Small nucleolar RNA SNORA42/SNORA80 family: a 131-nucleotide RNA from Myotis davidii. Rfam links the family to the GO terms RNA processing and nucleolus. It is annotated as an H/ACA-box small nucleolar RNA. A reference for the family is Schattner et al. (2006), "A computational screen for mammalian pseudouridylation guide H/ACA RNAs", RNA. Rfam's curators write: The members of this family belong to the H/ACA class of snoRNAs that guide the sites of modification of uridines to pseudouridines. Human ACA42 (SNORA42) was cloned from HeLa cells by immunoprecipitation with anti-GAR1 antibody. Its is predicted to guide the pseudouridylation of residues U109 and U572 of 18S rRNA. ACA42 shares the same host gene with ACA26, ACA46, ACA50. This family also includes mammalian snoRNA ACA67 (SNORA80) which was identified by computational screening and its expression in mouse experimentally verified by Northern blot and primer extension analysis.
RNA sequence: GCACCAGCUUGGACCUGUGGCAAGCCUGCCCCACUGUGUCUCUCACAGUGUCCCAUGCCAGAACAAACUGUGGCUUUGAACCAUUGUCUAGCCUCUGCCCAUUGGCAGGCAAGGAAGUGAGUUGCACCGUG
Numbered sequence: 001g002c003a004c005c006a007g008c009u010u011g012g013a014c015c016u017g018u019g020g021c022a023a024g025c026c027u028g029c030c031c032c033a034c035u036g037u038g039u040c041u042c043u044c045a046c047a048g049u050g051u052c053c054c055a056u057g058c059c060a061g062a063a064c065a066a067a068c069u070g071u072g073g074c075u076u077u078g079a080a081c082c083a084u085u086g087u088c089u090a091g092c093c094u095c096u097g098c099c100c101a102u103u104g105g106c107a108g109g110c111a112a113g114g115a116a117g118u119g120a121g122u123u124g125c126a127c128c129g130u131g
Stems, first nucleotide, its partner, number of pairs: 001058003007051002015048006022041001024039001026036001071124006082114001087109002091106003